Annotation
Rfam assigns this 344-nucleotide RNA sequence from Zongyangia hominis to the family "transfer-messenger RNA". NCBI's taxonomy places the organism under Bacteria, Clostridia, Eubacteriales, Oscillospiraceae, Zongyangia. A search with the family's covariance model found it, with a score of 170 bits. By type it is a non-coding RNA gene. The base pairs follow the family's consensus structure, which is taken from published work. About the family: Bacterial tmRNA, also known as 10Sa RNA or SsrA, is named for its dual tRNA and mRNA-like properties. Its role is to liberate the mRNA from a stalled ribosome. To accomplish this part of the tmRNA is used as a reading frame that ends in a translation stop signal. The broken mRNA is replaced in the ribosome by the tmRNA and translation of the tmRNA leads to addition of a proteolysis tag to the incomplete protein enabling recognition by a protease. Recently a number of permuted tmRNA genes have been found encoded in two parts. tmRNAs have been identified in eubacteria and some chloroplasts but are absent from archaeal and eukaryote nuclear genomes. Gene Ontology term of the family: RNA catabolic process.

[Rfam]
RNA sequence: GGGGGCGUAACGGCUUCGACGGGGAUUUUGAAGUGUGAGCAGCGAGUAGAGGUUCGGACCCUCUUUAAAAGCCGAAACUUUUAAAUUAAACGCAAACGAUAACGUAGCGUACGCAGCUUAACUGCUGCCGUCUAGCCCAGUAGUACCACGGACUGAGCAUAGGCGUCGAUGAGUGGUUCCUGUGUCCAUCGAGUUCCUCGGCUUUGGACACACACAGGAGGAUACUAAGGUCCGCAGCCUUUCUGCCGGCGGCUGACUGAGGGAAUGUAAAGGACAGAAUGCACUCGGAGAAACUUGCAUGGAGAGAUUUUCGGACACGGGUUCAACUCCCGUCGCCUCCACCA
Numbered sequence: 001g002g003g004g005g006c007g008u009a010a011c012g013g014c015u016u017c018g019a020c021g022g023g024g025a026u027u028u029u030g031a032a033g034u035g036u037g038a039g040c041a042g043c044g045a046g047u048a049g050a051g052g053u054u055c056g057g058a059c060c061c062u063c064u065u066u067a068a069a070a071g072c073c074g075a076a077a078c079u080u081u082u083a084a085a086u087u088a089a090a091c092g093c094a095a096a097c098g099a100u101a102a103c104g105u106a107g108c109g110u111a112c113g114c115a116g117c118u119u120a121a122c123u124g125c126u127g128c129c130g131u132c133u134a135g136c137c138c139a140g141u142a143g144u145a146c147c148a149c150g151g152a153c154u155g156a157g158c159a160u161a162g163g164c165g166u167c168g169a170u171g172a173g174u175g176g177u178u179c180c181u182g183u184g185u186c187c188a189u190c191g192a193g194u195u196c197c198u199c200g201g202c203u204u205u206g207g208a209c210a211c212a213c214a215c216a217g218g219a220g221g222a223u224a225c226u227a228a229g230g231u232c233c234g235c236a237g238c239c240u241u242u243c244u245g246c247c248g249g250c251g252g253c254u255g256a257c258u259g260a261g262g263g264a265a266u267g268u269a270a271a272g273g274a275c276a277g278a279a280u281g282c283a284c285u286c287g288g289a290g291a292a293a294c295u296u297g298c299a300u301g302g303a304g305a306g307a308u309u310u311u312c313g314g315a316c317a318c319g320g321g322u323u324c325a326a327c328u329c330c331c332g333u334c335g336c337c338u339c340c341a342c343c344a
Stems, first nucleotide, its partner, number of pairs: 001340007020313010033300007043287005048064005053076005109128001112127001113125004129165006136157001138155004146175001149173001181212008195222005225262002229258004234253001237250003241279004246273002317333005